[Rfam]
RNA: Cyano-1 RNA
RNA sequence: GUGUGUGUGAGGAGUAAGUUUAGAUAAAAAAGCGCUUGGAGUGGUAACACGGUAACACUCCAGGCGCUUUUUAAA
Numbered sequence: 001g002u003g004u005g006u007g008u009g010a011g012g013a014g015u016a017a018g019u020u021u022a023g024a025u026a027a028a029a030a031a032g033c034g035c036u037u038g039g040a041g042u043g044g045u046a047a048c049a050c051g052g053u054a055a056c057a058c059u060c061c062a063g064g065c066g067c068u069u070u071u072u073a074a075a
Stems, first nucleotide, its partner, number of pairs: 028071006037062003041058003